The record is a 97-nucleotide sequence from Pasteurellaceae bacterium 15-036681, which matches "Bacterial small signal recognition particle RNA" in Rfam. The source organism's lineage runs through Bacteria, Pseudomonadati, Pseudomonadota, Pasteurellales and Pasteurellaceae. Pairs were carried over by alignment from the consensus structure, which is taken from published work. It is annotated as a non-coding RNA gene.
RNA sequence: UUUUGGUUCCUCGCAAUGGUGUUCAGUUUACUUGGUCAGGUCCGGAAGGAAGCAGCCUGAAUUGAAAUUUCCGUGUGCCGAGGGUUUGCUGGAAGUC
Numbered sequence: 001u002u003u004u005g006g007u008u009c010c011u012c013g014c015a016a017u018g019g020u021g022u023u024c025a026g027u028u029u030a031c032u033u034g035g036u037c038a039g040g041u042c043c044g045g046a047a048g049g050a051a052g053c054a055g056c057c058u059g060a061a062u063u064g065a066a067a068u069u070u071c072c073g074u075g076u077g078c079c080g081a082g083g084g085u086u087u088g089c090u091g092g093a094a095g096u097c
Stems, first nucleotide, its partner, number of pairs: 003092005008084006014075001016074004021069001022066007032059001034057003041050003